The record is a 114-nucleotide sequence, which matches "SAM (S-adenosyl methionine) riboswitch aptamer" in Rfam. The match comes from Rfam's covariance-model search (105 bits).
RNA sequence: GGUCAAGAGAGCCAGUGACAAGCCCCAGCUUGCUGGCCGGCAACCCUCCAACCGCGGUGGGGUGCCCUGGGUGAGGACCAGGUGGUCGUGAAAAUGCGGCCACAAGCGCGGGCG
Dot-bracket structure: ((((....(.((((((....((......)).)))))))(((..(((.((......))..))).))).........))))..(((((((((....)))))))))...........